This 116-nucleotide sequence from Brachypodium distachyon belongs to the Rfam family "MIR5070 microRNA precursor family". The source organism's lineage runs through Eukaryota, Streptophyta, Spermatophyta, commelinids and Brachypodium.

RNA sequence: CAGGGUACCCUUUGACCCUCCCUAGUUCAACCAAAUGAACUAAAGUUUUUGAAUGAAACAACCUUUUGAAAAACUAGCUCAUUUGUUUAAACUAAGCAGGGUCAAUGGGUACCCUG
Number, nucleotide and partner (000 for none) at each position: 001c000002a115003g114004g113005g112006u111007a110008c109009c108010c107011u000012u105013u104014g103015a102016c101017c100018c099019u098020c000021c096022c000023u094024a093025g092026u091027u090028c000029a088030a087031c000032c085033a084034a083035a082036u081037g080038a079039a000040c077041u076042a075043a000044a000045g000046u000047u000048u000049u000050u000051g000052a000053a000054u000055g000056a000057a000058a000059c000060a000061a000062c000063c000064u000065u000066u000067u000068g000069a000070a000071a000072a000073a000074c000075u042076a041077g040078c000079u038080c037081a036082u035083u034084u033085g032086u000087u030088u029089a000090a027091a026092c025093u024094a023095a000096g021097c000098a019099g018100g017101g016102u015103c014104a013105a012106u000107g010108g009109g008110u007111a006112c005113c004114c003115u002116g000